The record is a 58-nucleotide sequence from Streptomyces alkaliphilus, which matches "Actino-pnp RNA" in Rfam.
RNA sequence: GCCGGUCCUCGGUAGUGGCCCCCGGGGCUCACCCCGGGUGCUUCGAUCGAUGGCCGGC
Numbered sequence: 001g002c003c004g005g006u007c008c009u010c011g012g013u014a015g016u017g018g019c020c021c022c023c024g025g026g027g028c029u030c031a032c033c034c035c036g037g038g039u040g041c042u043u044c045g046a047u048c049g050a051u052g053g054c055c056g057g058c
Stems, first nucleotide, its partner, number of pairs: 001058007009050005017042003021038007
The base pairs follow the family's consensus structure, which is taken from published work.
The source organism's lineage runs through Bacteria, Bacillati, Actinomycetota, Streptomycetaceae and Streptomyces.